[Rfam]
The record is a 45-nucleotide RNA sequence from Bordetella bronchiseptica, which matches "Guanidine-II riboswitch aptamer (mini-ykkC)" in Rfam. About the family: Simpler in structure and has fewer highly conserved nucleotide positions than the ykkC-yxkD leader. Despite this each of its two stem-loop structures directly bind free guanidine. Therefore, mini-ykkC RNA motif represents a distinct class of guanidine-sensing RNAs. Pairs were carried over by alignment from the consensus structure, which is taken from published work. The literature on the family includes a 2017 paper in Biochemistry by Sherlock et al., "Biochemical Validation of a Second Guanidine Riboswitch Class in Bacteria". The organism belongs to Bordetella, within Bacteria.

RNA sequence: GCGCCGGGACGACCCGGCGCGUGUACUGGCCUGAGGACGACCUCG
Numbered sequence: 001g002c003g004c005c006g007g008g009a010c011g012a013c014c015c016g017g018c019g020c021g022u023g024u025a026c027u028g029g030c031c032u033g034a035g036g037a038c039g040a041c042c043u044c045g
Base pairs, nucleotide, nucleotide: 001020002019003018004017005016006015007014008013032045033044034043035042036041